Shown here is a 75-nucleotide sequence from Halcyon senegalensis, a member of the family "Small nucleolar RNA SNORD102".
Rfam classes the family as a C/D-box small nucleolar RNA.
A search with the family's covariance model found it, with a score of 50 bits.
Taxonomically the source falls in Halcyon (Eukaryota, Chordata, Neognathae, Coraciimorphae).
Rfam links the family to the GO terms RNA processing and nucleolus.
The literature on the family includes a 2003 paper in Nucleic Acids Res by Vitali et al., "Identification of 13 novel human modification guide RNAs".

[Rfam]
RNA sequence: AGCUUGAUGAUGAUUAUUUCCCAUGAUUGCUUGCUGAAAGCAAAGUGAUCGCUCAUUUCACCGACUCUGAAAGCA
Numbered sequence: 001a002g003c004u005u006g007a008u009g010a011u012g013a014u015u016a017u018u019u020c021c022c023a024u025g026a027u028u029g030c031u032u033g034c035u036g037a038a039a040g041c042a043a044a045g046u047g048a049u050c051g052c053u054c055a056u057u058u059c060a061c062c063g064a065c066u067c068u069g070a071a072a073g074c075a
Stems, first nucleotide, its partner, number of pairs: 002074004